[Rfam]
RNA sequence: UUACUAGGUGAGCGUUUUAGUGCUUUCCUACUCUUUAGGAUAAUCGAAGGAGAAGCACGCCAGAUUAUCCACUAGUAA
Numbered sequence: 001u002u003a004c005u006a007g008g009u010g011a012g013c014g015u016u017u018u019a020g021u022g023c024u025u026u027c028c029u030a031c032u033c034u035u036u037a038g039g040a041u042a043a044u045c046g047a048a049g050g051a052g053a054a055g056c057a058c059g060c061c062a063g064a065u066u067a068u069c070c071a072c073u074a075g076u077a078a
Stems, first nucleotide, its partner, number of pairs: 001078006010033003038070008